[Rfam]
RNA sequence: GAGUUACUCUCAGUGGCAAGGUUAACCGAGUAGGGGAGCCGCAGGGAAACCGAGUCCGAACAGGGCGUUGAGUCGCUGGGAGUAGACCCGAAACCGGGCGAUCUACCCAUGGCCAGGGUGAAGGCGGGGUAACACCCGCUGGAGGCCCGAACCCACCGUCGUUGAAAAGCCGGGGGAUGAGCUGUGGGUAGGAGUGAAAGGCUAAUCAAGCUCGGAGAUAGCUGGUU
Dot-bracket structure: ....(((((((((((((..((((..((.....))..))))...((....))..((((.....)))).....)))))))))))))..((.(...((((((...((((((((((((.((((...((((((......))))))....))))...(((.(((.(........).))))))..).))))))))))).(((.....)))......))))))......).))..
RNA: Bacterial large subunit ribosomal RNA, nucleotides 578 to 804
Organism: Inmirania thermothiophila